[Rfam]
RNA sequence: AGCUUUGCGCAGUGGCGGUACCAUAGUCGAUGAGGUUUAUCCGAGACGUGGUUAUUGCUAGUUGAAAACUAUACCCAAUACCCCGCGCUGAUGCCUGAAAUACGGCAGCAGUCGCAAUUUCUGAACGCCUCUACGGAGG
Number, nucleotide and partner (000 for none) at each position: 001a000002g000003c000004u000005u000006u000007g000008c000009g000010c000011a000012g000013u000014g000015g000016c000017g000018g000019u000020a052021c051022c050023a049024u048025a000026g047027u046028c045029g000030a000031u000032g000033a000034g042035g041036u000037u000038u000039a000040u000041c035042c034043g000044a000045g028046a027047c026048g024049u023050g022051g021052u020053u000054a000055u000056u000057g000058c000059u000060a000061g000062u000063u000064g000065a000066a000067a000068a000069c000070u000071a000072u000073a000074c000075c000076c000077a000078a000079u000080a000081c000082c000083c000084c000085g115086c114087g113088c111089u110090g109091a000092u107093g106094c105095c104096u000097g000098a000099a000100a000101u000102a000103c000104g095105g094106c093107a092108g000109c090110a089111g088112u000113c087114g086115c085116a000117a000118u000119u000120u000121c000122u000123g000124a000125a000126c000127g000128c139129c138130u137131c136132u000133a000134c000135g000136g131137a130138g129139g128